[Rfam]
RNA: gut-2 RNA
RNA sequence: CGCCAUCCGGCAAUCGGGUCGGAUGAAGGACCAAUCGGGGUCAACAGA
Numbered sequence: 001c002g003c004c005a006u007c008c009g010g011c012a013a014u015c016g017g018g019u020c021g022g023a024u025g026a027a028g029g030a031c032c033a034a035u036c037g038g039g040g041u042c043a044a045c046a047g048a
Stems, first nucleotide, its partner, number of pairs: 004025008029042004